[Rfam]
RNA sequence: CGAUAGUAUGGUAGAAAGAUUCAUAUUUUUUUUCUACCAUACUAUCUAUAUCUAUUAUUGGACUGUAUAAAGAUACAAGCUUAAUA
Numbered sequence: 001c002g003a004u005a006g007u008a009u010g011g012u013a014g015a016a017a018g019a020u021u022c023a024u025a026u027u028u029u030u031u032u033u034c035u036a037c038c039a040u041a042c043u044a045u046c047u048a049u050a051u052c053u054a055u056u057a058u059u060g061g062a063c064u065g066u067a068u069a070a071a072g073a074u075a076c077a078a079g080c081u082u083a084a085u086a
Stems, first nucleotide, its partner, number of pairs: 002046018
Shown here is an 86-nucleotide RNA from Hibiscus syriacus, a member of the family "Plastid-psbM 3UTR RNA". The base pairs follow the family's consensus structure, which was predicted with LocARNA. Plastid psbM is a non-coding RNA (ncRNA) recognised in plastids. It was found in the three prime untranslated region (3UTR) of psbM gene, its 3UTR location suggests a role in transcript maturation. The literature on the family includes a 2023 paper in Plant Commun by Richter et al., "Retrograde signaling in plants: A critical review focusing on the GUN pathway and beyond". Taxonomically the source falls in Hibiscus (Eukaryota, Viridiplantae, Tracheophyta, Malvoideae). The family's RNA type in Rfam is cis-regulatory element.